This 106-nucleotide RNA sequence from Turnera subulata belongs to the Rfam family "MIR162_1 microRNA precursor family".
The family has 36 seed sequences and 270 matches in Rfam 15.1.
The family's consensus secondary structure was predicted with RNAalifold.
Gene Ontology terms of the family: RISC complex and miRNA-mediated post-transcriptional gene silencing.

RNA sequence: GGUGACGUCACUGGAGGCAGCGGUUCAUCGAUCUCUUCCUGGGGGAUUAUUAAGCAACAAUAAAACAUGAAUCGAUCGAUAAACCUCUGCAUCCAGCGCUUCCCCU
Numbered sequence: 001g002g003u004g005a006c007g008u009c010a011c012u013g014g015a016g017g018c019a020g021c022g023g024u025u026c027a028u029c030g031a032u033c034u035c036u037u038c039c040u041g042g043g044g045g046a047u048u049a050u051u052a053a054g055c056a057a058c059a060a061u062a063a064a065a066c067a068u069g070a071a072u073c074g075a076u077c078g079a080u081a082a083a084c085c086u087c088u089g090c091a092u093c094c095a096g097c098g099c100u101u102c103c104c105c106u
Base pairs, nucleotide, nucleotide: 013094014093015092018089019088020087022085023084024083025082027080028079029078030077031076032075033074036071037070038069